[Rfam]
RNA: Small Cajal body specific RNA 16
Organism: Thamnophis sirtalis
RNA sequence: AUGGGCUAGGAAAUGGCUGCUGUGUGGCUGGGUCUCCUUGGGGUCCGGCUUUUUACCAGUGAGCCUGACUUUGCCCUAGAUUAAGAAAAGGCGGCACGCUCCUUUUAGGGGUCCGCCUUAUGCAGUAACAGGUGUGAGCAUUCUUACAGGAACCUGAUGGUCAUGUAUGAUACUGCAGACAGAU
Numbered sequence: 001a002u003g004g005g006c007u008a009g010g011a012a013a014u015g016g017c018u019g020c021u022g023u024g025u026g027g028c029u030g031g032g033u034c035u036c037c038u039u040g041g042g043g044u045c046c047g048g049c050u051u052u053u054u055a056c057c058a059g060u061g062a063g064c065c066u067g068a069c070u071u072u073g074c075c076c077u078a079g080a081u082u083a084a085g086a087a088a089a090g091g092c093g094g095c096a097c098g099c100u101c102c103u104u105u106u107a108g109g110g111g112u113c114c115g116c117c118u119u120a121u122g123c124a125g126u127a128a129c130a131g132g133u134g135u136g137a138g139c140a141u142u143c144u145u146a147c148a149g150g151a152a153c154c155u156g157a158u159g160g161u162c163a164u165g166u167a168u169g170a171u172a173c174u175g176c177a178g179a180c181a182g183a184u
Stems, first nucleotide, its partner, number of pairs: 003076004008071003015065004019060004024056002026050005032044003119179001121177007129169002135163003139159004